[Rfam]
Shown here is a 33-nucleotide RNA sequence, a member of the family "S4-Flavobacteria ribosomal protein leader". Rfam classes the family as a cis-regulatory leader. The base pairs follow the family's consensus structure, which is taken from published work.
RNA sequence: CGCUGGCGAAGGAGGAUGCCUUAAUUCCCAGUG
Dot-bracket structure: ((((((.(((((......))))....)))))))
Numbered sequence: 001c002g003c004u005g006g007c008g009a010a011g012g013a014g015g016a017u018g019c020c021u022u023a024a025u026u027c028c029c030a031g032u033g
Stems, first nucleotide, its partner, number of pairs: 001033006008027001009022004

The family is grouped with related families in Rfam's "Ribosomal Protein S4 Leader clan".